RNA sequence: UGAGUAAGACAAAUGGCCGCAGCUGCAAAGCCGAAAGGCUGCAGGUGAGGAAAGUCCGGGCUUCACAGGGCAGAAUGCCAGAUAACGUCUGGCGGAGGUGACUCCAGGGAAAGUGCAACAGAAAUAAACCGCCGCAUCUGCGGUAAGGGUGGAAAGGUGGUGUAAGAGACCACCGCUCUUCUGGUAACAGGAGGGGUCCAUGUAAACCCCAUUCGAAGCAAGACCGAACAGGAAGCAUAAGGCGGCCCGUCUGCUUCCGGGUAGGUCGCUUGAGCCUGCUGGCGACGGCAGGCCUAGAUAGAUGGCCAUUCAAUGACAUAACCCGGCUUAUCGUCUUACUCAAAGC
Numbered sequence: 001u002g003a004g005u006a007a008g009a010c011a012a013a014u015g016g017c018c019g020c021a022g023c024u025g026c027a028a029a030g031c032c033g034a035a036a037g038g039c040u041g042c043a044g045g046u047g048a049g050g051a052a053a054g055u056c057c058g059g060g061c062u063u064c065a066c067a068g069g070g071c072a073g074a075a076u077g078c079c080a081g082a083u084a085a086c087g088u089c090u091g092g093c094g095g096a097g098g099u100g101a102c103u104c105c106a107g108g109g110a111a112a113g114u115g116c117a118a119c120a121g122a123a124a125u126a127a128a129c130c131g132c133c134g135c136a137u138c139u140g141c142g143g144u145a146a147g148g149g150u151g152g153a154a155a156g157g158u159g160g161u162g163u164a165a166g167a168g169a170c171c172a173c174c175g176c177u178c179u180u181c182u183g184g185u186a187a188c189a190g191g192a193g194g195g196g197u198c199c200a201u202g203u204a205a206a207c208c209c210c211a212u213u214c215g216a217a218g219c220a221a222g223a224c225c226g227a228a229c230a231g232g233a234a235g236c237a238u239a240a241g242g243c244g245g246c247c248c249g250u251c252u253g254c255u256u257c258c259g260g261g262u263a264g265g266u267c268g269c270u271u272g273a274g275c276c277u278g279c280u281g282g283c284g285a286c287g288g289c290a291g292g293c294c295u296a297g298a299u300a301g302a303u304g305g306c307c308a309u310u311c312a313a314u315g316a317c318a319u320a321a322c323c324c325g326g327c328u329u330a331u332c333g334u335c336u337u338a339c340u341c342a343a344a345g346c
Base pairs, nucleotide, nucleotide: 001342002341003340004339005338006337007336008335009334010333011331012310013309014308015307016306017305018304020047021046023044024043025042026041027040052329053328054327056326057325058324059323060322061218062217063216064215068248069247070246071245073214074213075212076211077210078092079091080090081089082088093107094105095104096103097102108209109208113207114206115203116202117201129148130147131144132143133142134141135140156174157173158172159171160170161169175198176195177194178193179192180191181190182189183188222267223266224265225264231258232257233256234255235254236253240252241251242250243249274293275292276291277290278289279288280287281286